[Rfam]
Eukaryotic small subunit ribosomal RNA: a 492-nucleotide part of an RNA from Lipotes vexillifer. A search with the family's covariance model found it, with a score of 1201 bits. The base pairs follow the family's consensus structure, which is taken from published work. On this family, see Yusupov et al., Science 2001: "Crystal structure of the ribosome at 5.5 A resolution". Rfam 15.1 lists 75,755 matches to the family in 2,556 species. The source organism's lineage runs through Eukaryota, Eumetazoa, Theria, Boreoeutheria and Lipotes.
RNA sequence: UGACGGAAGGGCACCACCAGGAGUGGAGUCUGCGGCUCAAUUUGACUCAACACGGGAAACCUCACCCGGCCCGGACACGGACAGGACUGACAGAUUGAUAGCUCUUUCUCGAUUCCGUGGGUGGUGGUGCAUGGCCGUUCUUAGCUGGUGGAGCGACUUGUCUGGUUAAUUCCGAUAACGAAUGAGACUCUGACAUGCUAACUAGUUAAUGAACACUGAGCGGUUGGCAUCCCCAACUUUUUAGACGGACAAGUGGUGAUCAGUUACCCAAGACUGAGCAAUAACAGGGCUGUGAUGCCCUUAGGUGUCCGGGGCUGCACGCGCGCUACACUGACUGGCUCAGCGUGUGCCUACCCUACGCUGGCAGGAGCAGGUAACCCACUGAAUCCCAUUUGUGAUGGGGAUGGGGGACUGCCAUUAUUCCCCAUGAGUGAGGAAUUCCCAGUAAGUGUGGGUCAGAAGCUUGCAUUAAGUCCCUGCCCUUUGUACACA
Numbered sequence: 001u002g003a004c005g006g007a008a009g010g011g012c013a014c015c016a017c018c019a020g021g022a023g024u025g026g027a028g029u030c031u032g033c034g035g036c037u038c039a040a041u042u043u044g045a046c047u048c049a050a051c052a053c054g055g056g057a058a059a060c061c062u063c064a065c066c067c068g069g070c071c072c073g074g075a076c077a078c079g080g081a082c083a084g085g086a087c088u089g090a091c092a093g094a095u096u097g098a099u100a101g102c103u104c105u106u107u108c109u110c111g112a113u114u115c116c117g118u119g120g121g122u123g124g125u126g127g128u129g130c131a132u133g134g135c136c137g138u139u140c141u142u143a144g145c146u147g148g149u150g151g152a153g154c155g156a157c158u159u160g161u162c163u164g165g166u167u168a169a170u171u172c173c174g175a176u177a178a179c180g181a182a183u184g185a186g187a188c189u190c191u192g193a194c195a196u197g198c199u200a201a202c203u204a205g206u207u208a209a210u211g212a213a214c215a216c217u218g219a220g221c222g223g224u225u226g227g228c229a230u231c232c233c234c235a236a237c238u239u240u241u242u243a244g245a246c247g248g249a250c251a252a253g254u255g256g257u258g259a260u261c262a263g264u265u266a267c268c269c270a271a272g273a274c275u276g277a278g279c280a281a282u283a284a285c286a287g288g289g290c291u292g293u294g295a296u297g298c299c300c301u302u303a304g305g306u307g308u309c310c311g312g313g314g315c316u317g318c319a320c321g322c323g324c325g326c327u328a329c330a331c332u333g334a335c336u337g338g339c340u341c342a343g344c345g346u347g348u349g350c351c352u353a354c355c356c357u358a359c360g361c362u363g364g365c366a367g368g369a370g371c372a373g374g375u376a377a378c379c380c381a382c383u384g385a386a387u388c389c390c391a392u393u394u395g396u397g398a399u400g401g402g403g404a405u406g407g408g409g410g411a412c413u414g415c416c417a418u419u420a421u422u423c424c425c426c427a428u429g430a431g432u433g434a435g436g437a438a439u440u441c442c443c444a445g446u447a448a449g450u451g452u453g454g455g456u457c458a459g460a461a462g463c464u465u466g467c468a469u470u471a472a473g474u475c476c477c478u479g480c481c482c483u484u485u486g487u488a489c490a491c492a
Base pairs, nucleotide, nucleotide: 001490002489003487004486005485007484008483009482010481011480012479013478016474017473020442021441022440023439024438025329027327028326029325031323032322033321034320035318036317041056042055043054044053065313066312067311068310069309071307076119077118078117079116080115089108090107092105093104094103123301124300126299127298128297129296132295133293135288136287137285138284139283144183146181148179149178150159151158163174164173165172189277190276192274194247196245198244199243200242201241204238205237206236207235253267254266255265256264257263333394334393336391337390338389347379355374356373359370361368362367401432407426408425409424410423411422448470449469450468451467452466453465454464455463